[Rfam]
RNA sequence: AUUUUUUCGUCGACAGGGUUCGACAAAAAAC
Numbered sequence: 001a002u003u004u005u006u007u008c009g010u011c012g013a014c015a016g017g018g019u020u021c022g023a024c025a026a027a028a029a030a031c
Stems, first nucleotide, its partner, number of pairs: 002030006009024005014018001